[Rfam]
A member of the RNA family "Gammaproteobacterial sRNA STnc100" from Feofaniavirus Eho49, 183 nucleotides long.
The match comes from Rfam's covariance-model search (75 bits).
Rfam classes the family as a small RNA.
Taxonomically the source falls in Feofaniavirus Eho49 (Viruses, Duplodnaviria, Uroviricota, Caudoviricetes).
RNA sequence: AUCAUCAGAUAAUUUAAAGUUUAUCCGCUUCCGUGAAUCCCCCUAUGCGGUGGGGCGCUCAGCCUGAUUCUCUGAAUGAGAACGUAAACGAGGCGCAAAUCUUUUGGCUGGAAGAUUUACCGGGAGGCACCCGGCACGGCAGCUACCAAUUAAAGCAGCCCACCUUAUGGUGGGUUUUUUUAU
Numbered sequence: 001a002u003c004a005u006c007a008g009a010u011a012a013u014u015u016a017a018a019g020u021u022u023a024u025c026c027g028c029u030u031c032c033g034u035g036a037a038u039c040c041c042c043c044u045a046u047g048c049g050g051u052g053g054g055g056c057g058c059u060c061a062g063c064c065u066g067a068u069u070c071u072c073u074g075a076a077u078g079a080g081a082a083c084g085u086a087a088a089c090g091a092g093g094c095g096c097a098a099a100u101c102u103u104u105u106g107g108c109u110g111g112a113a114g115a116u117u118u119a120c121c122g123g124g125a126g127g128c129a130c131c132c133g134g135c136a137c138g139g140c141a142g143c144u145a146c147c148a149a150u151u152a153a154a155g156c157a158g159c160c161c162a163c164c165u166u167a168u169g170g171u172g173g174g175u176u177u178u179u180u181u182a183u
Stems, first nucleotide, its partner, number of pairs: 027140002032138004040055004062085002089095002097118004102113002120134005155178001157176007